[Rfam]
RNA sequence: AGAUGACCUCGCAGAGCCGCGAGGUCGGUAAUCAAAAAAAGCUCGCUGAGA
Numbered sequence: 001a002g003a004u005g006a007c008c009u010c011g012c013a014g015a016g017c018c019g020c021g022a023g024g025u026c027g028g029u030a031a032u033c034a035a036a037a038a039a040a041g042c043u044c045g046c047u048g049a050g051a
Base pairs, nucleotide, nucleotide: 006025007024008023009022010021011020014044015043016042017041
Overview:
The record is a 51-nucleotide RNA, which matches "6A RNA" in Rfam. Rfam classes the family as a small RNA.